[Rfam]
RNA: Small nucleolar RNA SNORD19
RNA sequence: UGGAAAUGAGGACAAAACGCAAGUCUGGAUUUCAUUAUGAAGACUUCUAAUCCAACUCUGAUCCAAACACUGUG
Numbered sequence: 001u002g003g004a005a006a007u008g009a010g011g012a013c014a015a016a017a018c019g020c021a022a023g024u025c026u027g028g029a030u031u032u033c034a035u036u037a038u039g040a041a042g043a044c045u046u047c048u049a050a051u052c053c054a055a056c057u058c059u060g061a062u063c064c065a066a067a068c069a070c071u072g073u074g
Stems, first nucleotide, its partner, number of pairs: 001065004